[Rfam]
The record is a 74-nucleotide RNA sequence from Segatella baroniae, which matches "tRNA" in Rfam. Rfam 15.1 lists 5,335,975 matches to the family in 14,413 species. The source organism's lineage runs through Bacteria, Pseudomonadati, Bacteroidota, Segatella and Segatella baroniae.
RNA sequence: GUGGAUGUAGUUCAGUUGGUUAGAGCGUCAGAUUGUGGUUCUGAAUGUCGUGGGUUCGAGUCCCACCCUCCACC
Numbered sequence: 001g002u003g004g005a006u007g008u009a010g011u012u013c014a015g016u017u018g019g020u021u022a023g024a025g026c027g028u029c030a031g032a033u034u035g036u037g038g039u040u041c042u043g044a045a046u047g048u049c050g051u052g053g054g055u056u057c058g059a060g061u062c063c064c065a066c067c068c069u070c071c072a073c074c
Base pairs, nucleotide, nucleotide: 001073002072003071004070005069007067010026011025012024013023028044029043030042031041032040050066051065052064053063054062